[Rfam]
RNA: Cyano-1 RNA
Organism: Chlorogloeopsis fritschii
RNA sequence: UAUUGUGUGAGGAGCAAGUUUGAAACGAAAAGCGCUUGGAGUGGAAACACGGCAACACUCUUAAGCGCUUUUUAAU
Number, nucleotide and partner (000 for none) at each position: 001u000002a000003u000004u000005g000006u000007g000008u000009g000010a000011g000012g000013a000014g000015c000016a000017a000018g000019u000020u000021u000022g000023a000024a000025a000026c000027g000028a000029a071030a070031a069032g068033c067034g000035c000036u064037u063038g062039g061040a000041g058042u057043g056044g000045a000046a000047a000048c000049a000050c000051g000052g000053c000054a000055a000056c043057a042058c041059u000060c000061u039062u038063a037064a036065g000066c000067g033068c032069u031070u030071u029072u000073u000074a000075a000076u000